[Rfam]
RNA sequence: UGGGGGAGGUCGGAUCCUGGGUUCUGUCCCAGUGCUCCCGGGCCUGUGCUUUUGGGUUCGUGCUCCCGGCCGUGCAGCCCCCU
Dot-bracket structure: .(((((..(((((..((.(((.(.(((((..(.(((....)))).........)))..)).).))).))))).))..))))).
RNA: mir-8799 microRNA precursor family
Organism: Canis lupus